[Rfam]
RNA sequence: GGAAGAGAAACACUCCCGGUGGGGUGCACGGACUUCAAAUCCGAUGGGAGGCGCUGCGCGUCUCCGGUGGGUUCGACUCCCGCCUCUUCC
Numbered sequence: 001g002g003a004a005g006a007g008a009a010a011c012a013c014u015c016c017c018g019g020u021g022g023g024g025u026g027c028a029c030g031g032a033c034u035u036c037a038a039a040u041c042c043g044a045u046g047g048g049a050g051g052c053g054c055u056g057c058g059c060g061u062c063u064c065c066g067g068u069g070g071g072u073u074c075g076a077c078u079c080c081c082g083c084c085u086c087u088u089c090c
Base pairs, nucleotide, nucleotide: 001090002089003088004087005086006085007084011026012025013024014023015022016021029043030042031041032040047065048064049063050062051061068082069081070080071079

Rfam assigns this 90-nucleotide RNA sequence from Roseomonas mucosa to the family "Selenocysteine transfer RNA". Its Rfam clan is "tRNA clan". Pairs were carried over by alignment from the consensus structure, which is taken from published work. Rfam 15.1 lists 4,211 matches to the family in 3,344 species.